[Rfam]
RNA sequence: AUUAAAAUGCAAUAUCCGGUAAAUCCGAAAACAUCAGAAAUUGAAUAACAUUAAUAAAAUUAUUUUAGGAUUAAGCUCAAUUAAGGUAUGAAGUUAAAACGUAGAUAUCCUGGAGCAUUCUUAUAAAAAAGCCGAUAUUAAUAUCGGCUUUUUAUUUCAUU
Numbered sequence: 001a002u003u004a005a006a007a008u009g010c011a012a013u014a015u016c017c018g019g020u021a022a023a024u025c026c027g028a029a030a031a032c033a034u035c036a037g038a039a040a041u042u043g044a045a046u047a048a049c050a051u052u053a054a055u056a057a058a059a060u061u062a063u064u065u066u067a068g069g070a071u072u073a074a075g076c077u078c079a080a081u082u083a084a085g086g087u088a089u090g091a092a093g094u095u096a097a098a099a100c101g102u103a104g105a106u107a108u109c110c111u112g113g114a115g116c117a118u119u120c121u122u123a124u125a126a127a128a129a130a131g132c133c134g135a136u137a138u139u140a141a142u143a144u145c146g147g148c149u150u151u152u153u154a155u156u157u158c159a160u161u
Stems, first nucleotide, its partner, number of pairs: 015105002018102001024070003028066004033061001040055005112121002129150009
This 161-nucleotide RNA from Citrobacter portucalensis belongs to the Rfam family "Enterobacterial sRNA STnc430".
Rfam's curators put it in the seed alignment.
NCBI's taxonomy places the organism under Bacteria, Pseudomonadati, Enterobacterales, Enterobacteriaceae, Citrobacter freundii complex.